[Rfam]
RNA: Group II catalytic intron D1-D4-5
RNA sequence: GAGAACUAAACACACGAAUAGUCGAAUGACGGGGUAACGCCCUGAAAGGCUACUUUAAUACUCCCGACUGGCAGAAACUUGAGUAAACAAAGCUCUGUCAGAAGCUCGGUGAAGUCGGCAGACUGACACCGUUACAGAUAUUGUUACGAAAGAUCCCAGAGGUGGCGUUGUGUUCUAAUUUCCGGAAG
Numbered sequence: 001g002a003g004a005a006c007u008a009a010a011c012a013c014a015c016g017a018a019u020a021g022u023c024g025a026a027u028g029a030c031g032g033g034g035u036a037a038c039g040c041c042c043u044g045a046a047a048g049g050c051u052a053c054u055u056u057a058a059u060a061c062u063c064c065c066g067a068c069u070g071g072c073a074g075a076a077a078c079u080u081g082a083g084u085a086a087a088c089a090a091a092g093c094u095c096u097g098u099c100a101g102a103a104g105c106u107c108g109g110u111g112a113a114g115u116c117g118g119c120a121g122a123c124u125g126a127c128a129c130c131g132u133u134a135c136a137g138a139u140a141u142u143g144u145u146a147c148g149a150a151a152g153a154u155c156c157c158a159g160a161g162g163u164g165g166c167g168u169u170g171u172g173u174u175c176u177a178a179u180u181u182c183c184g185g186a187a188g
Base pairs, nucleotide, nucleotide: 019052020051021050022049023048031043032042033041034040053188054187055186056185064109065108066107067106068101069100070099071098072097073096074095075094078092079091080090116184117183118182120180125174126173127172128171129170130148131147132146137145138144152169153168154167156165157164158163